[Rfam]
RNA sequence: UGUUGAAUGAUGAAAAAAAUCAAUCGGAUUCCCAUUGAUAUUUUCGUAUAUGAGAUUACAACCAGCUACUUCUGACAAUA
Numbered sequence: 001u002g003u004u005g006a007a008u009g010a011u012g013a014a015a016a017a018a019a020u021c022a023a024u025c026g027g028a029u030u031c032c033c034a035u036u037g038a039u040a041u042u043u044u045c046g047u048a049u050a051u052g053a054g055a056u057u058a059c060a061a062c063c064a065g066c067u068a069c070u071u072c073u074g075a076c077a078a079u080a
Stems, first nucleotide, its partner, number of pairs: 001080005
Shown here is an 80-nucleotide sequence from Lathyrus oleraceus, a member of the family "Small nucleolar RNA R12". Rfam describes the family as follows. snoR12 is a C/D box small nucleolar RNA, which acts as a methylation guide for 25S ribosomal RNA in plants. snoR12 has been alternatively named snoZ44 in Arabidopsis and snoZ131 in rice. It is annotated as a C/D-box small nucleolar RNA. The match comes from Rfam's covariance-model search (73 bits). Its family is annotated with RNA processing and nucleolus in the Gene Ontology. Lineage of the source: Eukaryota > Spermatophyta > Fabaceae > Fabeae > Lathyrus.